RNA sequence: UCCAUGUGUGUGUUUUUGCUUAACUGGACAAGGACUAAAAGUAGAUGUAAAAGCUAAAUCCUCUUUUGCAUCUCAGAACUCAUUGUUGAGUAUGUUUUGAUACAAAUAAAAAGUGAUAAA
Numbered sequence: 001u002c003c004a005u006g007u008g009u010g011u012g013u014u015u016u017u018g019c020u021u022a023a024c025u026g027g028a029c030a031a032g033g034a035c036u037a038a039a040a041g042u043a044g045a046u047g048u049a050a051a052a053g054c055u056a057a058a059u060c061c062u063c064u065u066u067u068g069c070a071u072c073u074c075a076g077a078a079c080u081c082a083u084u085g086u087u088g089a090g091u092a093u094g095u096u097u098u099g100a101u102a103c104a105a106a107u108a109a110a111a112a113g114u115g116a117u118a119a120a
Base pairs, nucleotide, nucleotide: 001049003047004046005045007043008042009040012035013034014033015032016031017030018029058117059116060115062113064111065110066109067108068107074099075098076097077096078095081094082093083092
Rfam assigns this 120-nucleotide sequence from Peromyscus maniculatus to the family "Small nucleolar RNA SNORA40". The snoRNA ACA 40 belongs to the H/ACA family of snoRNAs and guides the pseudouridylation of 28S rRNA subunit at position U4565. NB This family has a high threshold value to exclude a large number of closely related sequences that do not appear to have conserved H and ACA boxes, and may be pseudogenes. Rfam classes the family as an H/ACA-box small nucleolar RNA. The family's consensus secondary structure was predicted with RNAalifold. A reference for the family is Ofengand and Bakin (1997), "Mapping to nucleotide resolution of pseudouridine residues in large subunit ribosomal RNAs from representative eukaryotes, prokaryotes, archaebacteria, mitochondria and chloroplasts", J Mol Biol. Gene Ontology terms of the family: nucleolus and RNA processing. The source organism's lineage runs through Eukaryota, Euteleostomi, Muroidea, Neotominae and Peromyscus maniculatus. A search with the family's covariance model found it, with a score of 73 bits.